[Rfam]
RNA sequence: AAAGUCUCAUAUGCCACUGCAAUGGACUGGUUCAUAGCUGUGUGCUUCGCCUUU
Numbered sequence: 001a002a003a004g005u006c007u008c009a010u011a012u013g014c015c016a017c018u019g020c021a022a023u024g025g026a027c028u029g030g031u032u033c034a035u036a037g038c039u040g041u042g043u044g045c046u047u048c049g050c051c052u053u054u
Base pairs, nucleotide, nucleotide: 001054002053003052008049011046013045014044015042016041017040019038020037022035023034024033025032026031
RNA: Editing element of GABA-3 exon 9